A member of the RNA family "mir-16 microRNA precursor family" from Gopherus evgoodei, 75 nucleotides long. Clan: mir-15 clan. The family has 14 seed sequences and 4,705 matches in Rfam 15.1.
RNA sequence: GGCACCUUAUAGACUAACAAAAGUAUUGGAGCAUAAGCUUUAUGCUCCAGUACUUCUGUUAGUCUAUAAGGUGCC
Dot-bracket structure: (((.(((..(((((((((.(.((((((((.................)))))))))..))))))))..)))).)))
Numbered sequence: 001g002g003c004a005c006c007u008u009a010u011a012g013a014c015u016a017a018c019a020a021a022a023g024u025a026u027u028g029g030a031g032c033a034u035a036a037g038c039u040u041u042a043u044g045c046u047c048c049a050g051u052a053c054u055u056c057u058g059u060u061a062g063u064c065u066a067u068a069a070g071g072u073g074c075c
Stems, first nucleotide, its partner, number of pairs: 001075003005071003010068001011065008020055001022054008
The base pairs follow the family's consensus structure, which was predicted with PFOLD. Taxonomically the source falls in Gopherus (Eukaryota, Opisthokonta, Sauropsida, Cryptodira). The literature on the family includes a 2002 paper in Proc Natl Acad Sci U S A by Calin et al., "Frequent deletions and down-regulation of micro- RNA genes miR15 and miR16 at 13q14 in chronic lymphocytic leukemia".